Background: The family of this 385-nucleotide sequence from Phenylobacterium deserti is "Bacterial RNase P class A". The source organism's lineage runs through Bacteria, Alphaproteobacteria, Caulobacterales, Caulobacteraceae and Phenylobacterium. A search with the family's covariance model found it, with a score of 289 bits.
[Rfam]
RNA sequence: UCAGACGGCCGGGCGGUCGCGGGCGCAAGCUCGAGGAAAGUCCGGGCUCCACGACGACAUGGCGGCGGGUAACGCCCGCCGGGGGCGACCCCAGGGAUAGCGCCACAGAAAGCAAACCGCCGGGCGUUCGCGUCCGGUAAGGGUGAAAGGGUGCGGUAAGAGCGCACCGCGUCCUUGGCAACAAGGGCGGCAAGGCAAGCCCCGCCAGGAGCAAGACCGAAUAGGGAUCCCGCGCUCGCGAAAGCGGGUAGGGCCGUCGCCGGCCCGAGGGAUCCGGGUUGGUCGCGAGAACCGGUCCGCGAGGAUCGGUCCAGAGGAAUGGCCGCCGCGUCCGCAGCUUCGGCUGCGGGCGGCACAGAACCCGGCUUACAGGCCGUCUGAUCUC
Numbered sequence: 001u002c003a004g005a006c007g008g009c010c011g012g013g014c015g016g017u018c019g020c021g022g023g024c025g026c027a028a029g030c031u032c033g034a035g036g037a038a039a040g041u042c043c044g045g046g047c048u049c050c051a052c053g054a055c056g057a058c059a060u061g062g063c064g065g066c067g068g069g070u071a072a073c074g075c076c077c078g079c080c081g082g083g084g085g086c087g088a089c090c091c092c093a094g095g096g097a098u099a100g101c102g103c104c105a106c107a108g109a110a111a112g113c114a115a116a117c118c119g120c121c122g123g124g125c126g127u128u129c130g131c132g133u134c135c136g137g138u139a140a141g142g143g144u145g146a147a148a149g150g151g152u153g154c155g156g157u158a159a160g161a162g163c164g165c166a167c168c169g170c171g172u173c174c175u176u177g178g179c180a181a182c183a184a185g186g187g188c189g190g191c192a193a194g195g196c197a198a199g200c201c202c203c204g205c206c207a208g209g210a211g212c213a214a215g216a217c218c219g220a221a222u223a224g225g226g227a228u229c230c231c232g233c234g235c236u237c238g239c240g241a242a243a244g245c246g247g248g249u250a251g252g253g254c255c256g257u258c259g260c261c262g263g264c265c266c267g268a269g270g271g272a273u274c275c276g277g278g279u280u281g282g283u284c285g286c287g288a289g290a291a292c293c294g295g296u297c298c299g300c301g302a303g304g305a306u307c308g309g310u311c312c313a314g315a316g317g318a319a320u321g322g323c324c325g326c327c328g329c330g331u332c333c334g335c336a337g338c339u340u341c342g343g344c345u346g347c348g349g350g351c352g353g354c355a356c357a358g359a360a361c362c363c364g365g366c367u368u369a370c371a372g373g374c375c376g377u378c379u380g381a382u383c384u385c
Stems, first nucleotide, its partner, number of pairs: 001381010011370001012327007020033005038368003042365005047211004060207005065079005080094001081092004095202002100200002102196003117142002119138008150168006169191001170189008215284004225275006251266005291310008